Shown here is a 122-nucleotide sequence from Thermoflavimicrobium dichotomicum, a member of the family "Group II catalytic intron D1-D4-4". The literature on the family includes a 2001 paper in Trends Genet by Bonen and Vogel, "The ins and outs of group II introns". NCBI's taxonomy places the organism under Bacteria, Bacillati, Bacillota, Caryophanales, Thermoflavimicrobium. Group II introns are found in rRNA, tRNA and mRNA of organelles in fungi, plants and protists, and also in mRNA in bacteria. The match comes from Rfam's covariance-model search (54 bits).

[Rfam]
RNA sequence: UUGCAGGUGCAAGUCCGAUCGAGGUAAGAGCCAGGUCGCCUGGAGCUACAGGCAGUUGGUGGAGAAAUCCUGGGGUCGAAGCCCUGUUACAAAGUAAACCAUUAGGCUACGAGCAAACAGGG
Numbered sequence: 001u002u003g004c005a006g007g008u009g010c011a012a013g014u015c016c017g018a019u020c021g022a023g024g025u026a027a028g029a030g031c032c033a034g035g036u037c038g039c040c041u042g043g044a045g046c047u048a049c050a051g052g053c054a055g056u057u058g059g060u061g062g063a064g065a066a067a068u069c070c071u072g073g074g075g076u077c078g079a080a081g082c083c084c085u086g087u088u089a090c091a092a093a094g095u096a097a098a099c100c101a102u103u104a105g106g107c108u109a110c111g112a113g114c115a116a117a118c119a120g121g122g
Stems, first nucleotide, its partner, number of pairs: 020042001022041003048087005053078001055076003062069002094110003099105001

Source information: Pairs were carried over by alignment from the consensus structure.